[Rfam]
RNA sequence: ACACGGGAAAGGAGGUGGUCCGAAGUUGAUUGACGACAGGACUCGUGAGGUGGCUGCCCGCUGACGGGCGGCACGCGAUAGGACUUUCCGGCAGGGGACCACUUCCAGACAGUCGCCUGCUUCGUGUGCUUGCCUUUCGGUGAAUACCAGGCAGUCACCGGUCCCCCGACGCUCCCGGGCACCGGUCCGGCCCGGGCCCGACCCUCGCGGCCGGGAGCGGCGUCGGGGGUCUCUUCAU
Dot-bracket structure: .............((((((.................................))))))((((((..((((((((((((...........................................)))))))).))))..)))))).................((.((((((((((.((.((............)).))........................)))))))))).))......
Numbered sequence: 001a002c003a004c005g006g007g008a009a010a011g012g013a014g015g016u017g018g019u020c021c022g023a024a025g026u027u028g029a030u031u032g033a034c035g036a037c038a039g040g041a042c043u044c045g046u047g048a049g050g051u052g053g054c055u056g057c058c059c060g061c062u063g064a065c066g067g068g069c070g071g072c073a074c075g076c077g078a079u080a081g082g083a084c085u086u087u088c089c090g091g092c093a094g095g096g097g098a099c100c101a102c103u104u105c106c107a108g109a110c111a112g113u114c115g116c117c118u119g120c121u122u123c124g125u126g127u128g129c130u131u132g133c134c135u136u137u138c139g140g141u142g143a144a145u146a147c148c149a150g151g152c153a154g155u156c157a158c159c160g161g162u163c164c165c166c167c168g169a170c171g172c173u174c175c176c177g178g179g180c181a182c183c184g185g186u187c188c189g190g191c192c193c194g195g196g197c198c199c200g201a202c203c204c205u206c207g208c209g210g211c212c213g214g215g216a217g218c219g220g221c222g223u224c225g226g227g228g229g230u231c232u233c234u235u236c237a238u
Stems, first nucleotide, its partner, number of pairs: 014058006059142006067134004071129008160232002163229010174195002177192002